[Rfam]
RNA sequence: GCUACCACCCCUAAACAGGUACAGGAAGGGGGUGUGCUAUCAAUGGAUACAAUUUUAUCAUUUAUGCUUUCUAUUCUGGCAGGUGUAAUCACCUAUUACAUUUGCAAAUGGCUGGAUAGAAAAUAGUAGCUGGUAGCCAGCCUGGGGAAUAAGCCACCCUUGCCAAAACGGAAUAAAAAAGCCUCGGAGAUGCGACCUCCGAGGCUUUUUGCUGUGUUACC
Numbered sequence: 001g002c003u004a005c006c007a008c009c010c011c012u013a014a015a016c017a018g019g020u021a022c023a024g025g026a027a028g029g030g031g032g033u034g035u036g037c038u039a040u041c042a043a044u045g046g047a048u049a050c051a052a053u054u055u056u057a058u059c060a061u062u063u064a065u066g067c068u069u070u071c072u073a074u075u076c077u078g079g080c081a082g083g084u085g086u087a088a089u090c091a092c093c094u095a096u097u098a099c100a101u102u103u104g105c106a107a108a109u110g111g112c113u114g115g116a117u118a119g120a121a122a123a124u125a126g127u128a129g130c131u132g133g134u135a136g137c138c139a140g141c142c143u144g145g146g147g148a149a150u151a152a153g154c155c156a157c158c159c160u161u162g163c164c165a166a167a168a169c170g171g172a173a174u175a176a177a178a179a180a181g182c183c184u185c186g187g188a189g190a191u192g193c194g195a196c197c198u199c200c201g202a203g204g205c206u207u208u209u210u211g212c213u214g215u216g217u218u219a220c221c
Stems, first nucleotide, its partner, number of pairs: 005029002009025002011018002031164004045063004049058001077156003080104003084100006110142006117135002166218002168215002173210001178208012

A member of the RNA family "Streptococcus sRNA SpF66" from Blautia wexlerae, 221 nucleotides long. By type it is a small RNA. The family's consensus secondary structure was predicted with mfold. The match comes from Rfam's covariance-model search (50 bits).